The family of this 198-nucleotide sequence from Arthrobacter cavernae is "c-di-AMP riboswitch aptamer (ydaO/yuaA leader)". The organism belongs to Arthrobacter, within Bacteria. Rfam describes the family as follows. This family represents a conserved RNA structure found upstream of the ydaO and yuaA genes in Bacillus subtilis and related genes in other bacteria. Its family is annotated with cyclic-di-AMP binding and regulation of gene expression in the Gene Ontology.
Nucleotides: 198
Base pairs, nucleotide, nucleotide: 007184008183009182010181014058015057016056017055018054019053020052021051060178061177062176063175064174069098070097099164100163101162107141108140109139110138111137112136144158145157146156147155
Number, partner (000 for none) and nucleotide at each position: 001000g002000c003000u004000g005000a006000u007184u008183g009182c010181c011000u012000a013000a014058c015057u016056c017055u018054g019053c020052c021051g022000c023000g024000g025000c026000c027000c028000g029000g030000g031000a032000u033000c034000c035000g036000u037000u038000c039000a040000u041000a042000g043000c044000a045000a046000u047000c048000g049000u050000u051021c052020g053019g054018c055017a056016g057015a058014g059000a060178c061177g062176g063175g064174g065000a066000a067000a068000c069098c070097a071000c072000u073000u074000u075000u076000g077000a078000c079000c080000u081000g082000c083000u084000g085000u086000u087000g088000a089000g090000c091000a092000g093000g094000u095000c096000u097070u098069g099164g100163g101162g102000u103000g104000a105000a106000g107141c108140c109139g110138c111137a112136u113000a114000a115000c116000g117000c118000c119000u120000g121000c122000a123000c124000g125000u126000g127000c128000a129000g130000g131000g132000c133000g134000g135000g136112g137111u138110g139109c140108g141107g142000c143000c144158g145157g146156g147155u148000g149000c150000c151000u152000c153000c154000c155147a156146u157145c158144c159000g160000a161000a162101u163100c164099c165000g166000a167000c168000a169000g170000c171000u172000c173000a174064c175063c176062u177061c178060g179000c180000a181010g182009g183008c184007a185000u186000u187000g188000g189000g190000a191000g192000a193000g194000g195000c196000u197000u198000c